[Rfam]
RNA sequence: GGAAUAUACGAAUCUGUCUCUUAAUUUUUAACUAAAAAAAAGCUAAGAACCGCUUCUUAAAUAUCUUAUUGAAGAACCGGUUCUUAACUUUUUUAAUUAAAUGUUAAGAGACGGGUUAUUAUAUUCC
Numbered sequence: 001g002g003a004a005u006a007u008a009c010g011a012a013u014c015u016g017u018c019u020c021u022u023a024a025u026u027u028u029u030a031a032c033u034a035a036a037a038a039a040a041a042g043c044u045a046a047g048a049a050c051c052g053c054u055u056c057u058u059a060a061a062u063a064u065c066u067u068a069u070u071g072a073a074g075a076a077c078c079g080g081u082u083c084u085u086a087a088c089u090u091u092u093u094u095a096a097u098u099a100a101a102u103g104u105u106a107a108g109a110g111a112c113g114g115g116u117u118a119u120u121a122u123a124u125u126c127c
Base pairs, nucleotide, nucleotide: 001127002126003125004124005123006122007121008120011117012116013115014114015113016112017111018110019109020108021107022106023105024104025103027101028100029099030098031097033095034094035093036092037091038090039089044086045085046084047083048082049081
The record is a 127-nucleotide RNA sequence from Brassica carinata, which matches "MIR9563 microRNA precursor family" in Rfam. A search with the family's covariance model found it, with a score of 97 bits. Rfam 15.1 lists 5,832 matches to the family in 9 species. The base pairs follow the family's consensus structure, which was predicted with RNAalifold. The organism belongs to Brassica, within Eukaryota. Rfam links the family to the GO terms RISC complex and miRNA-mediated post-transcriptional gene silencing.